[Rfam]
RNA sequence: AAGCUGCAAGGCGAUGGGGUUCCGCCUGAACCGCCCCCGGACGACAAGUCCGGGGAGCUGAUGACUCCUACGAGAUC
Numbered sequence: 001a002a003g004c005u006g007c008a009a010g011g012c013g014a015u016g017g018g019g020u021u022c023c024g025c026c027u028g029a030a031c032c033g034c035c036c037c038c039g040g041a042c043g044a045c046a047a048g049u050c051c052g053g054g055g056a057g058c059u060g061a062u063g064a065c066u067c068c069u070a071c072g073a074g075a076u077c
Base pairs, nucleotide, nucleotide: 010026011025012024013023016068017067018066019065020064021063033058034057036055037054038053
The family of this 77-nucleotide RNA from Terriglobus albidus is "Fluoride riboswitch aptamer (crcB RNA motif)". Rfam links the family to the GO terms positive regulation of gene expression and response to fluoride. NCBI's taxonomy places the organism under Bacteria, Pseudomonadati, Terriglobia, Terriglobales, Terriglobus.